[Rfam]
RNA: Eukaryotic large subunit ribosomal RNA, nucleotides 1510 to 1932
RNA sequence: GGUAGUAGCACUUAUUCAAACGAGAACUUUGAAGACUGAAGUGGAGAAGGGUUCCGCGUGAACAGCAAUUGUUCGCGGGUGAGUCGAUCCUAAGAAUCAGGGUAGAUCCGUUCUCAUCCGUAUUCGAAAGGGAGACAGGUUAAUAUUCCUGUACCUUGGUAUGACUCGAUGGCGGUAACGCAAGUGAGCUCGCAGACGCCUGCACUCGUCACGGGGAGAGCCCUCGCCUCUCUUUUAUAUUCAACAUGCCCCGGAGAAAGGUGAACUUGAGAAAGGGUUACGUGAAUAGUAUAACCCGGUUCGGUCUGCCGGGUCCGAUGCGCGAGGAGCAAGCCCAUGAAAAGUGAGGGAGCAACAGGAGUCUUCUUCCAAGAUCGUACCCAAAACCGCAUCAGGUCUCCAAGGUGAGUAGCCUCUAGUCGA
Numbered sequence: 001g002g003u004a005g006u007a008g009c010a011c012u013u014a015u016u017c018a019a020a021c022g023a024g025a026a027c028u029u030u031g032a033a034g035a036c037u038g039a040a041g042u043g044g045a046g047a048a049g050g051g052u053u054c055c056g057c058g059u060g061a062a063c064a065g066c067a068a069u070u071g072u073u074c075g076c077g078g079g080u081g082a083g084u085c086g087a088u089c090c091u092a093a094g095a096a097u098c099a100g101g102g103u104a105g106a107u108c109c110g111u112u113c114u115c116a117u118c119c120g121u122a123u124u125c126g127a128a129a130g131g132g133a134g135a136c137a138g139g140u141u142a143a144u145a146u147u148c149c150u151g152u153a154c155c156u157u158g159g160u161a162u163g164a165c166u167c168g169a170u171g172g173c174g175g176u177a178a179c180g181c182a183a184g185u186g187a188g189c190u191c192g193c194a195g196a197c198g199c200c201u202g203c204a205c206u207c208g209u210c211a212c213g214g215g216g217a218g219a220g221c222c223c224u225c226g227c228c229u230c231u232c233u234u235u236u237a238u239a240u241u242c243a244a245c246a247u248g249c250c251c252c253g254g255a256g257a258a259a260g261g262u263g264a265a266c267u268u269g270a271g272a273a274a275g276g277g278u279u280a281c282g283u284g285a286a287u288a289g290u291a292u293a294a295c296c297c298g299g300u301u302c303g304g305u306c307u308g309c310c311g312g313g314u315c316c317g318a319u320g321c322g323c324g325a326g327g328a329g330c331a332a333g334c335c336c337a338u339g340a341a342a343a344g345u346g347a348g349g350g351a352g353c354a355a356c357a358g359g360a361g362u363c364u365u366c367u368u369c370c371a372a373g374a375u376c377g378u379a380c381c382c383a384a385a386a387c388c389g390c391a392u393c394a395g396g397u398c399u400c401c402a403a404g405g406u407g408a409g410u411a412g413c414c415u416c417u418a419g420u421c422g423a
Stems, first nucleotide, its partner, number of pairs: 015033006034421004043401004049381002054078005063071002085377003089131002094125002096112001098110001100109003135152005155373004161368001163366002165361002172181003189348005198334002201331001203329001205326005212317002214234006238288005248278004258268003295313006387396002403415004